[Rfam]
RNA: Plastid-psbM 3UTR RNA
Organism: Capsicum baccatum
RNA sequence: GAUAGUAUGGUAGAAAGAUUCAUCUAUUUCUUUCUACCAUACUAUUUAUUAGUUAGAUUGUAGU
Number, nucleotide and partner (000 for none) at each position: 001g046002a045003u044004a043005g042006u041007a040008u039009g038010g037011u036012a035013g034014a033015a032016a031017g030018a029019u000020u000021c000022a000023u000024c000025u000026a000027u000028u000029u018030c017031u016032u015033u014034c013035u012036a011037c010038c009039a008040u007041a006042c005043u004044a003045u002046u001047u000048a000049u000050u000051a000052g000053u000054u000055a000056g000057a000058u000059u000060g000061u000062a000063g000064u000